[Rfam]
RNA sequence: UGGCUAUAAAAUAACUUAUCAUGUAGCCACUUUGAGUUACGAUAAUUACUAUGUUAAGUGGUUUACUAUAACGUUAUGAUAAAUAUCCUCUUAUGUUAUAGUAACCCAACUAUCGUAAAUAUGUAUUGACAUUAUCGUAAAUUAUUAUAUAAAAUUAUCGUAAAUGGAGGUGGCUACAGAAUAACUUAUUUUAUAGCUG
Numbered sequence: 001u002g003g004c005u006a007u008a009a010a011a012u013a014a015c016u017u018a019u020c021a022u023g024u025a026g027c028c029a030c031u032u033u034g035a036g037u038u039a040c041g042a043u044a045a046u047u048a049c050u051a052u053g054u055u056a057a058g059u060g061g062u063u064u065a066c067u068a069u070a071a072c073g074u075u076a077u078g079a080u081a082a083a084u085a086u087c088c089u090c091u092u093a094u095g096u097u098a099u100a101g102u103a104a105c106c107c108a109a110c111u112a113u114c115g116u117a118a119a120u121a122u123g124u125a126u127u128g129a130c131a132u133u134a135u136c137g138u139a140a141a142u143u144a145u146u147a148u149a150u151a152a153a154a155u156u157a158u159c160g161u162a163a164a165u166g167g168a169g170g171u172g173g174c175u176a177c178a179g180a181a182u183a184a185c186u187u188a189u190u191u192u193a194u195a196g197c198u199g
Stems, first nucleotide, its partner, number of pairs: 001199014016184004022178012037163011050149001051132003054119002058113006064103011078088001
Dot-bracket structure: ((((((((((((((.((((..((((((((((((...(((((((((((..((((((..(((((((((((((((((...(.........)....)))))))))))....))))))....))..........)))................)...)))))))))))...))))))))))))..)))).))))))))))))))